RNA sequence: AGGGGCAAAGAUAAAAACGCAACGUAAGAGGCAAUCUCUUGCAGAGUCGGUAGGUAGCCCGGCCGCACCGUUCGGUGUAAGUAACCCUCCCUCCUUAGGGUCGUCCGUUCUUUGUUCAUACAAU
Numbered sequence: 001a002g003g004g005g006c007a008a009a010g011a012u013a014a015a016a017a018c019g020c021a022a023c024g025u026a027a028g029a030g031g032c033a034a035u036c037u038c039u040u041g042c043a044g045a046g047u048c049g050g051u052a053g054g055u056a057g058c059c060c061g062g063c064c065g066c067a068c069c070g071u072u073c074g075g076u077g078u079a080a081g082u083a084a085c086c087c088u089c090c091c092u093c094c095u096u097a098g099g100g101u102c103g104u105c106c107g108u109u110c111u112u113u114g115u116u117c118a119u120a121c122a123a124u
Stems, first nucleotide, its partner, number of pairs: 004116008046063005065078005089100003
Rfam assigns this 124-nucleotide RNA from Blautia hydrogenotrophica to the family "azaaromatic riboswitch aptamer (yjdF RNA)".